[Rfam]
RNA sequence: UGGGUGUGAAGAGAGCAGAGCGCCUGAAGAAUGGCUCCUCUGUGAAUAACACAUCCAACAGCAACUCGGGCUUAUUCUGAACAAGGGGCAGGAUGCUAGGACUUUCUGUGACAGCCCUACACAU
Number, nucleotide and partner (000 for none) at each position: 001u000002g056003g055004g054005u053006g052007u051008g050009a000010a000011g000012a000013g000014a000015g043016c042017a041018g040019a039020g038021c000022g035023c034024c033025u000026g000027a000028a000029g000030a000031a000032u000033g024034g023035c022036u000037c000038c020039u019040c018041u017042g016043u015044g000045a000046a000047u000048a000049a000050c008051a007052c006053a005054u004055c003056c002057a000058a000059c000060a000061g000062c000063a000064a000065c000066u000067c000068g000069g117070g116071c000072u114073u000074a000075u000076u000077c000078u000079g000080a000081a000082c110083a109084a000085g103086g102087g000088g000089c099090a000091g097092g096093a000094u000095g000096c092097u091098a000099g089100g000101a000102c086103u085104u000105u000106c000107u000108g000109u083110g082111a000112c000113a000114g072115c000116c070117c069118u000119a000120c000121a000122c000123a000124u000